About this RNA:
The family of this 137-nucleotide RNA sequence from Stegastes partitus is "Small nucleolar RNA SNORA5". Taxonomically the source falls in Stegastes (Eukaryota, Craniata, Vertebrata, Ovalentaria). The family is grouped with related families in Rfam's "SNORA5 clan". The family's consensus secondary structure was predicted with RNAfold. Rfam classes the family as an H/ACA-box small nucleolar RNA. Rfam describes the family as follows. ACA5 is a member of the H/ACA class of snoRNA that guide the sites of modification of uridines to pseudouridines.
[Rfam]
RNA sequence: UGCAGCCUUGUCAAAUUCAGUGCUUCCCCCUCAGUGGAAGCCACUGGCCAAAACGGCUGCCACAGUGACGGCGUAGUUCAUGGGCCUCACGGUGCUCCAACUUGGCCGCUGAGGAUAAAUGUGUACUACACACAAAC
Dot-bracket structure: .((((............((((((((((........))))).)))))..........))))............((((((......(((...(.................)..)))........).)))))........